[Rfam]
RNA sequence: UGGGGUAACCUGGCUAAGGGAAAUCGGCAAAUUAGCCCCGUAACUUUGGGAGAAGGGGUGCCAGCCAUGUAGAUGGCUGGUCGCAGUGACAGGGGGGGCCCGACUGUUUAAUAAAAACAUAGCUCCUAGCUAGCCCGUGAGGGUGUGUACUGGGGGCGACACCUGCCCAGUGCCGGCACGUGAAGCCCUGGUUCAACGGGGUGAAGCGCCGGUAAACGGCGGGGGUAACUAUAACCCUCUUAAGGUAGCGAAAUGCCUUGCCGGAUAAGUACCGGCCUGCAUGAAUGGUUGAACGAGGUCCCUACUGUCCCUAGCCAGGACCUGGUGAAGCUGCUGUUCUGGUGCACAAGCCAGAGA
Numbered sequence: 001u002g003g004g005g006u007a008a009c010c011u012g013g014c015u016a017a018g019g020g021a022a023a024u025c026g027g028c029a030a031a032u033u034a035g036c037c038c039c040g041u042a043a044c045u046u047u048g049g050g051a052g053a054a055g056g057g058g059u060g061c062c063a064g065c066c067a068u069g070u071a072g073a074u075g076g077c078u079g080g081u082c083g084c085a086g087u088g089a090c091a092g093g094g095g096g097g098g099c100c101c102g103a104c105u106g107u108u109u110a111a112u113a114a115a116a117a118c119a120u121a122g123c124u125c126c127u128a129g130c131u132a133g134c135c136c137g138u139g140a141g142g143g144u145g146u147g148u149a150c151u152g153g154g155g156g157c158g159a160c161a162c163c164u165g166c167c168c169a170g171u172g173c174c175g176g177c178a179c180g181u182g183a184a185g186c187c188c189u190g191g192u193u194c195a196a197c198g199g200g201g202u203g204a205a206g207c208g209c210c211g212g213u214a215a216a217c218g219g220c221g222g223g224g225g226u227a228a229c230u231a232u233a234a235c236c237c238u239c240u241u242a243a244g245g246u247a248g249c250g251a252a253a254u255g256c257c258u259u260g261c262c263g264g265a266u267a268a269g270u271a272c273c274g275g276c277c278u279g280c281a282u283g284a285a286u287g288g289u290u291g292a293a294c295g296a297g298g299u300c301c302c303u304a305c306u307g308u309c310c311c312u313a314g315c316c317a318g319g320a321c322c323u324g325g326u327g328a329a330g331c332u333g334c335u336g337u338u339c340u341g342g343u344g345c346a347c348a349a350g351c352c353a354g355a356g357a
Base pairs, nucleotide, nucleotide: 001324002323003322004321009319010318011317012316013315014314015313016312018310019309020308035059036058037057038056039055044049060081061080062079063078064077065076066075067074068073082086094303095302096301097300098299099298100297101295102294105119106118107117122157123156124155125154126153127152128151129150130147133144134143135142136141161289162288163287165220166219167218170217171216172213173212174211175210176209179208180207181206186201187200188199189198190197221239222238223237224236225235226234240244260276261275262274263273264272338355339354340353341352342351
RNA: Archaeal large subunit ribosomal RNA, nucleotides 1829 to 2185